A member of the RNA family "Purine riboswitch aptamer" from Neobacillus mesonae, 100 nucleotides long. The family's consensus secondary structure is taken from published work. Gene Ontology term of the family: purine nucleobase biosynthetic process. Taxonomically the source falls in Neobacillus (Bacteria, Bacillota, Caryophanales, Bacillaceae).
RNA sequence: AUCUAAAUAUUAAAAUCGUUUCAUAUAAUUUCGAAAAUAAGGUUCGAAAGUCUCUACCUGGGACCUCAAAUCCCUGACUAUGAAACUAUGUUUAUGCGAU
Numbered sequence: 001a002u003c004u005a006a007a008u009a010u011u012a013a014a015a016u017c018g019u020u021u022c023a024u025a026u027a028a029u030u031u032c033g034a035a036a037a038u039a040a041g042g043u044u045c046g047a048a049a050g051u052c053u054c055u056a057c058c059u060g061g062g063a064c065c066u067c068a069a070a071u072c073c074c075u076g077a078c079u080a081u082g083a084a085a086c087u088a089u090g091u092u093u094a095u096g097c098g099a100u
Base pairs, nucleotide, nucleotide: 018086019085020084021083022082023081024080025079029049030048031047032046033045034044035043058076060074061073062072063071